Shown here is a 68-nucleotide RNA from Peribacillus loiseleuriae, a member of the family "Bacillaceae-1 RNA". The base pairs follow the family's consensus structure, which is taken from published work. NCBI's taxonomy places the organism under Bacteria, Bacillati, Bacillota, Bacilli, Peribacillus.
RNA sequence: CAUUAAUGACCUUCUGUUAAGAUCGCGCACGUCCUGUGCGCAACACAGAAGUCAGCACAUCCUGUGCA
Number, nucleotide and partner (000 for none) at each position: 001c000002a000003u000004u000005a000006a000007u000008g000009a000010c000011c051012u050013u049014c048015u047016g046017u045018u000019a000020a000021g000022a000023u000024c000025g000026c040027g039028c038029a037030c036031g000032u000033c000034c000035u000036g030037u029038g028039c027040g026041c000042a000043a000044c000045a017046c016047a015048g014049a013050a012051g011052u000053c000054a000055g067056c066057a065058c064059a000060u000061c000062c000063u000064g058065u057066g056067c055068a000